[Rfam]
RNA: mir-156 microRNA precursor family
RNA sequence: UUGACAGAAGAGAGUGAGCACACAGAGGCACUUGUUAUAUAUGUAUAUCAGUGCUUUUGCGUGCUCACUUCUCUUUCUGUCAA
Numbered sequence: 001u002u003g004a005c006a007g008a009a010g011a012g013a014g015u016g017a018g019c020a021c022a023c024a025g026a027g028g029c030a031c032u033u034g035u036u037a038u039a040u041a042u043g044u045a046u047a048u049c050a051g052u053g054c055u056u057u058u059g060c061g062u063g064c065u066c067a068c069u070u071c072u073c074u075u076u077c078u079g080u081c082a083a
Stems, first nucleotide, its partner, number of pairs: 001083009010073003013069009023059003